[Rfam]
RNA sequence: GGGUCAGGAAACUGACCCCAAACAUAAGGCGGGGUAACCCGUCUAAGCUAAACGGAAGACAGAAA
Numbered sequence: 001g002g003g004u005c006a007g008g009a010a011a012c013u014g015a016c017c018c019c020a021a022a023c024a025u026a027a028g029g030c031g032g033g034g035u036a037a038c039c040c041g042u043c044u045a046a047g048c049u050a051a052a053c054g055g056a057a058g059a060c061a062g063a064a065a
Stems, first nucleotide, its partner, number of pairs: 001018007028043006
Dot-bracket structure: (((((((....))))))).........((((((....))))))......................
Overview: The record is a 65-nucleotide RNA sequence, which matches "L2-Alphaproteobacteria ribosomal protein leader" in Rfam. Pairs were carried over by alignment from the consensus structure, which is taken from published work. For this family Rfam cites "Discovery of 20 novel ribosomal leader candidates in bacteria and archaea" (Eckert and Weinberg, BMC Microbiol, 2020).